RNA sequence: UCAGUAGUUCAAGGCCAGAGCAGUUGUGCUCAUGGUGCAACCUAUCAGGUUCCAAUGAAUCUGCCAAUUCUGCU
Numbered sequence: 001u002c003a004g005u006a007g008u009u010c011a012a013g014g015c016c017a018g019a020g021c022a023g024u025u026g027u028g029c030u031c032a033u034g035g036u037g038c039a040a041c042c043u044a045u046c047a048g049g050u051u052c053c054a055a056u057g058a059a060u061c062u063g064c065c066a067a068u069u070c071u072g073c074u
Stems, first nucleotide, its partner, number of pairs: 013042002019074005026038003046063007
Dot-bracket structure: ............[[....(((((..(((.......)))..]]...(((((((....)))))))......)))))
RNA: Mammalian CPEB3 ribozyme